Shown here is a 130-nucleotide RNA, a member of the family "LOOT RNA".
The family's RNA type in Rfam is small RNA.
[Rfam]
RNA sequence: CGCCUAAACCAGUAAUGCUGGCAUGGCUACAAAAUCCUACGCGAACAGAAACGGCCCCAUAGGCUGGCACUCUAUUCGCGUAGGUCAUGCUCCCGAAAGGGACAUGGGUAGUCUCCGAAAGGAGGUUGCC
Numbered sequence: 001c002g003c004c005u006a007a008a009c010c011a012g013u014a015a016u017g018c019u020g021g022c023a024u025g026g027c028u029a030c031a032a033a034a035u036c037c038u039a040c041g042c043g044a045a046c047a048g049a050a051a052c053g054g055c056c057c058c059a060u061a062g063g064c065u066g067g068c069a070c071u072c073u074a075u076u077c078g079c080g081u082a083g084g085u086c087a088u089g090c091u092c093c094c095g096a097a098a099g100g101g102a103c104a105u106g107g108g109u110a111g112u113c114u115c116c117g118a119a120a121g122g123a124g125g126u127u128g129c130c
Stems, first nucleotide, its partner, number of pairs: 002027003009021005036084010049071001052066005086106004092101002107130010